[Rfam]
RNA sequence: AAUAUGAUAAAGAUAAAUUAGAUUUUUCCUCUUGAUAUUCAGCUUUUUCCUCUUGAAAAAAUUCAAAUCCAACUAAAAAUGUUAAAUAUCUGGAGAAAAAAAUAUGAUUUGUCAUUCUCCUAUU
Numbered sequence: 001a002a003u004a005u006g007a008u009a010a011a012g013a014u015a016a017a018u019u020a021g022a023u024u025u026u027u028c029c030u031c032u033u034g035a036u037a038u039u040c041a042g043c044u045u046u047u048u049c050c051u052c053u054u055g056a057a058a059a060a061a062u063u064c065a066a067a068u069c070c071a072a073c074u075a076a077a078a079a080u081g082u083u084a085a086a087u088a089u090c091u092g093g094a095g096a097a098a099a100a101a102a103u104a105u106g107a108u109u110u111g112u113c114a115u116u117c118u119c120c121u122a123u124u
Base pairs, nucleotide, nucleotide: 001124002123003122004121006119007118009116010115012113013112014111015110016109017108018107019106020105022103023101024100025099026098027097029095030094031093032092034090035089036088037087038086039085041083042082045079046078047077048076